[Rfam]
RNA: Bacterial large subunit ribosomal RNA, nucleotides 2111 to 2697
RNA sequence: CCCGCAGCAAGACGGAAAGACCCCGUGAACCUUUACUACAACUUGACAGUGACACUAGGGUUCGACUGUGUAGGAUAGGUGGGAGCCUUUGAAGCCGGGCCGCUAGGUUCGGUGGAGGCAACGGUGAAAUACCACCCUGUCGGAUUCUGGUGUCUAACCAUGCUCCUUUAGCGGGAGUUGGGACACUGUCUGGUGGGUAGUUUGACUGGGGCGGUCGCCUCCCAAAAUGUAACGGAGGCGCGCGAUGGUUCCCUCAGCCCGAUUGGAAACCGGGCGUCGAGUGCAAUGGCAUAAGGGAGCUUGACUGCGAGACCGACAGGUCGAGCAGGUGCGAAAGCAGGUCAUAGUGAUCCGGUGGUCCUGAAUGGAAGGGCCAUCGCUCAACGGAUAAAAGGUACUCCGGGGAUAACAGGCUUAUCUCCCCCAAGAGUUCACAUCGACGGGGAGGUUUGGCACCUCGAUGUCGGCUCAUCGCAUCCUGGGGCUGGAGCAGGUCCCAAGGGUUUGGCUGUUCGCCAAUUAAAGCGGUACGCGAGCUGGGUUCAAAACGUCGUGAGACAGUUUGGUCCCUAUCUGCUGUGGGCGUA
Numbered sequence: 001c002c003c004g005c006a007g008c009a010a011g012a013c014g015g016a017a018a019g020a021c022c023c024c025g026u027g028a029a030c031c032u033u034u035a036c037u038a039c040a041a042c043u044u045g046a047c048a049g050u051g052a053c054a055c056u057a058g059g060g061u062u063c064g065a066c067u068g069u070g071u072a073g074g075a076u077a078g079g080u081g082g083g084a085g086c087c088u089u090u091g092a093a094g095c096c097g098g099g100c101c102g103c104u105a106g107g108u109u110c111g112g113u114g115g116a117g118g119c120a121a122c123g124g125u126g127a128a129a130u131a132c133c134a135c136c137c138u139g140u141c142g143g144a145u146u147c148u149g150g151u152g153u154c155u156a157a158c159c160a161u162g163c164u165c166c167u168u169u170a171g172c173g174g175g176a177g178u179u180g181g182g183a184c185a186c187u188g189u190c191u192g193g194u195g196g197g198u199a200g201u202u203u204g205a206c207u208g209g210g211g212c213g214g215u216c217g218c219c220u221c222c223c224a225a226a227a228u229g230u231a232a233c234g235g236a237g238g239c240g241c242g243c244g245a246u247g248g249u250u251c252c253c254u255c256a257g258c259c260c261g262a263u264u265g266g267a268a269a270c271c272g273g274g275c276g277u278c279g280a281g282u283g284c285a286a287u288g289g290c291a292u293a294a295g296g297g298a299g300c301u302u303g304a305c306u307g308c309g310a311g312a313c314c315g316a317c318a319g320g321u322c323g324a325g326c327a328g329g330u331g332c333g334a335a336a337g338c339a340g341g342u343c344a345u346a347g348u349g350a351u352c353c354g355g356u357g358g359u360c361c362u363g364a365a366u367g368g369a370a371g372g373g374c375c376a377u378c379g380c381u382c383a384a385c386g387g388a389u390a391a392a393a394g395g396u397a398c399u400c401c402g403g404g405g406a407u408a409a410c411a412g413g414c415u416u417a418u419c420u421c422c423c424c425c426a427a428g429a430g431u432u433c434a435c436a437u438c439g440a441c442g443g444g445g446a447g448g449u450u451u452g453g454c455a456c457c458u459c460g461a462u463g464u465c466g467g468c469u470c471a472u473c474g475c476a477u478c479c480u481g482g483g484g485c486u487g488g489a490g491c492a493g494g495u496c497c498c499a500a501g502g503g504u505u506u507g508g509c510u511g512u513u514c515g516c517c518a519a520u521u522a523a524a525g526c527g528g529u530a531c532g533c534g535a536g537c538u539g540g541g542u543u544c545a546a547a548a549c550g551u552c553g554u555g556a557g558a559c560a561g562u563u564u565g566g567u568c569c570c571u572a573u574c575u576g577c578u579g580u581g582g583g584c585g586u587a
Base pairs, nucleotide, nucleotide: 001583002582003581004580005579006578007577008576010575011574012573014570015569022404023403024402025401027400028399029396030395031394032393033392035201036200037199038198042193043192045190046189047188048187051154052153053152054151055150056149057148058147059146060145061144062143063142064141065140066139068137078136079135080134081133082132085119086118087117094113095112096111097110098109099108100107101106158181159180160179162178163177164176165175166174167173204216205215206214207213217239218238219237220236221235222234240385242342243341248300249299250298251297252296253295254280255279257275258274259273260272261271281290282289305328306327307326308325311322312321313320330339331338332337353379354378355377356376357375358374359373361372362371413454414453415452417451418448419447420446421445422444423443424442428438429437465540466538467537468536469535470532471529472528473527474526475525478503479502481498482497483496484495485494486493505519506518507517508516509515546564547563548562549561550559551558552557